RNA sequence: AUUGGGAAAUGAUGAUAAUAUAUCGAUAUGUCAGAGGCAUAAUUUUAUUUGUGCUGUGCUGAAUAAAUAUGUUUGCACGUCAGUCUGAUCCCAAU
Dot-bracket structure: (((((((.................................................................................)))))))

Shown here is a 95-nucleotide sequence from Capsicum annuum, a member of the family "Small nucleolar RNA Z122". The match comes from Rfam's covariance-model search (66 bits). Rfam classes the family as a C/D-box small nucleolar RNA. For this family Rfam cites "The high diversity of snoRNAs in plants: identification and comparative study of 120 snoRNA genes from Oryza sativa" (Chen et al., Nucleic Acids Res, 2003). Lineage of the source: Eukaryota > Embryophyta > Spermatophyta > Pentapetalae > Capsicum.